[Rfam]
The record is a 79-nucleotide RNA sequence from Hermetia illucens, which matches "drz-agam-1 ribozyme" in Rfam. The literature on the family includes a 2009 paper in Science by Webb et al., "Widespread occurrence of self-cleaving ribozymes". Pairs were carried over by alignment from the consensus structure, which is taken from published work. Rfam 15.1 lists 10,507 matches to the family in 53 species. Lineage of the source: Eukaryota > Eumetazoa > Panorpida > Stratiomyidae > Hermetia.
RNA sequence: UACUACCAAACCCUAUCUCCACCUCCACGUGGUGUCCGCUGGGAGCUGUUUCUUAACGAAAAGCUGCAGACGGAGAAAG
Numbered sequence: 001u002a003c004u005a006c007c008a009a010a011c012c013c014u015a016u017c018u019c020c021a022c023c024u025c026c027a028c029g030u031g032g033u034g035u036c037c038g039c040u041g042g043g044a045g046c047u048g049u050u051u052c053u054u055a056a057c058g059a060a061a062a063g064c065u066g067c068a069g070a071c072g073g074a075g076a077a078a079g
Stems, first nucleotide, its partner, number of pairs: 013079002016076005021033003045067002048064004053059001